The family of this 67-nucleotide sequence from Tribolium castaneum is "mir-46/mir-47/mir-281 microRNA precursor family". For this family Rfam cites "An abundant class of tiny RNAs with probable regulatory roles in Caenorhabditis elegans" (Lau et al., Science, 2001). NCBI's taxonomy places the organism under Eukaryota, Panarthropoda, Dicondylia, Neoptera, Tribolium. It is one of the family's seed sequences.
RNA sequence: UCGAAAAUGAAGAGAGCUAUCCGUCGACAGUAUAUAAUUUACACUGUCAUGGAGUUGCUCUCUUUAU
Numbered sequence: 001u002c003g004a005a006a007a008u009g010a011a012g013a014g015a016g017c018u019a020u021c022c023g024u025c026g027a028c029a030g031u032a033u034a035u036a037a038u039u040u041a042c043a044c045u046g047u048c049a050u051g052g053a054g055u056u057g058c059u060c061u062c063u064u065u066a067u
Stems, first nucleotide, its partner, number of pairs: 009065005015059003020053004026048003030044002